[Rfam]
Nucleotides: 111
Base pairs, nucleotide, nucleotide: 008035009032010031013028014027016025018023038059039058040057041056042054043053044052045051046050084109086107087106088105092100093099
Number, partner (000 for none) and nucleotide at each position: 001000g002000g003000u004000u005000u006000a007000u008035a009032c010031c011000c012000a013028g014027u015000a016025u017000c018023u019000c020000a021000a022000g023018g024000u025016a026000c027014g028013c029000u030000u031010g032009g033000g034000c035008u036000u037000c038059u039058g040057a041056c042054c043053a044052g045051a046050a047000c048000u049000u050046u051045u052044c053043u054042g055000u056041g057040u058039u059038g060000g061000a062000c063000a064000a065000c066000c067000a068000a069000c070000a071000g072000u073000u074000u075000u076000u077000g078000g079000g080000c081000a082000g083000c084109u085000c086107u087106g088105c089000g090000g091000g092100g093099g094000a095000c096000a097000u098000c099093c100092c101000g102000a103000g104000a105088g106087c107086a108000a109084a110000a111000a